[Rfam]
RNA sequence: GAAUUCGAUGGGGAUGGGGUUCCCCGAAAUCGCCGAAGAGGCUGAUGACUCCUGCCGCGCC
Dot-bracket structure: .........[[[[..((((((]]]]......(((.....)))....)))))).........
Shown here is a 61-nucleotide RNA sequence from Methylocella tundrae, a member of the family "Fluoride riboswitch aptamer (crcB RNA motif)". Its family is annotated with response to fluoride and positive regulation of gene expression in the Gene Ontology. The family's consensus secondary structure is taken from published work.